The record is a 79-nucleotide RNA sequence from Enterobius vermicularis, which matches "mir-5360 microRNA precursor family" in Rfam. A search with the family's covariance model found it, with a score of 91 bits.

RNA sequence: UGGUCAAAGAACGAAUCGUCGAAUCGGAUGUCUGUAUUAUUUGAUCAGAAAUUCGAAUCGACAUUCGACCUGUGGCCAU
Numbered sequence: 001u002g003g004u005c006a007a008a009g010a011a012c013g014a015a016u017c018g019u020c021g022a023a024u025c026g027g028a029u030g031u032c033u034g035u036a037u038u039a040u041u042u043g044a045u046c047a048g049a050a051a052u053u054c055g056a057a058u059c060g061a062c063a064u065u066c067g068a069c070c071u072g073u074g075g076c077c078a079u
Base pairs, nucleotide, nucleotide: 002077003076004075005074006073008071009070012067013066014065015064016063018062019061020060021059022058024056025055026054027053028052029051031049032048033047